[Rfam]
RNA: MIR9563 microRNA precursor family
RNA sequence: AGUUAAGAAACUGUUUCUUAACUUUUAACUAAAAAAGCUAAGAGCCGAUUCUUAAAUAAGGACUUUAAGAAACAGUUCUUAACCUUUUUAGUUAAAAGCUAAGAAACAGUUUCUUAAUUUCC
Numbered sequence: 001a002g003u004u005a006a007g008a009a010a011c012u013g014u015u016u017c018u019u020a021a022c023u024u025u026u027a028a029c030u031a032a033a034a035a036a037g038c039u040a041a042g043a044g045c046c047g048a049u050u051c052u053u054a055a056a057u058a059a060g061g062a063c064u065u066u067a068a069g070a071a072a073c074a075g076u077u078c079u080u081a082a083c084c085u086u087u088u089u090a091g092u093u094a095a096a097a098g099c100u101a102a103g104a105a106a107c108a109g110u111u112u113c114u115u116a117a118u119u120u121c122c
Base pairs, nucleotide, nucleotide: 001119002118003117004116005115006114007113008112009111010110011109012108013107014106015105016104017103018102019101020100022098023097024096025095026094027093028092029091030090031089032088033087034086035085039081040080041079042078043077044076